Record summary
Rfam assigns this 121-nucleotide RNA from Kumtagia ephedrae to the family "Alphaproteobacterial ar14". A search with the family's covariance model found it, with a score of 86 bits. Smr14C2 was renamed NfeR1 (Nodule Formation Efficiency RNA) highly expressed in salt stress and during the symbiotic interaction on legume roots. A reference for the family is del Val et al. (2012), "A survey of sRNA families in alpha-proteobacteria", RNA Biol. Its family is annotated with biological process involved in symbiotic interaction in the Gene Ontology. Pairs were carried over by alignment from the consensus structure. Rfam classes the family as a small RNA.
[Rfam]
RNA sequence: GAACAUCGCCGACCCUACCUCCUCCCAGGGUUCGGCGACUACGGGCAGCCUUCUCCUCCUCCCGAACGCUGCCCGGCCUAUGCGGCACCCGCCGGACCUCCUCCCCCGGCGGGUGCUGUAA
Numbered sequence: 001g002a003a004c005a006u007c008g009c010c011g012a013c014c015c016u017a018c019c020u021c022c023u024c025c026c027a028g029g030g031u032u033c034g035g036c037g038a039c040u041a042c043g044g045g046c047a048g049c050c051u052u053c054u055c056c057u058c059c060u061c062c063c064g065a066a067c068g069c070u071g072c073c074c075g076g077c078c079u080a081u082g083c084g085g086c087a088c089c090c091g092c093c094g095g096a097c098c099u100c101c102u103c104c105c106c107c108g109g110c111g112g113g114u115g116c117u118g119u120a121a
Stems, first nucleotide, its partner, number of pairs: 007037006014030003042075008051066001085116011